[Rfam]
This 132-nucleotide sequence from Prolemur simus belongs to the Rfam family "Small nucleolar RNA SNORA31". Rfam describes the family as follows. ACA31 (SNORA31) belongs to the H/ACA class of snoRNAs which are thought to guide the sites of modification of uridines to pseudouridines. The match comes from Rfam's covariance-model search (43 bits).

RNA sequence: AUGCAUCUAUUGGACACACCUGGAGCAGUUAUUGUCUGCUGCUAAGGUUUCCACUACAGAUGUGAAAAAAAGGUGUCCCUGUGCUUUCUGACUGAUUGUGUGGUAGCCCACAGGGAAUGGUGGAAUAUGGAA
Numbered sequence: 001a002u003g004c005a006u007c008u009a010u011u012g013g014a015c016a017c018a019c020c021u022g023g024a025g026c027a028g029u030u031a032u033u034g035u036c037u038g039c040u041g042c043u044a045a046g047g048u049u050u051c052c053a054c055u056a057c058a059g060a061u062g063u064g065a066a067a068a069a070a071a072g073g074u075g076u077c078c079c080u081g082u083g084c085u086u087u088c089u090g091a092c093u094g095a096u097u098g099u100g101u102g103g104u105a106g107c108c109c110a111c112a113g114g115g116a117a118u119g120g121u122g123g124a125a126u127a128u129g130g131a132a
Stems, first nucleotide, its partner, number of pairs: 002064007011053002016050001018048003024040005076124003080120001084115001087112001089110002092106003096102001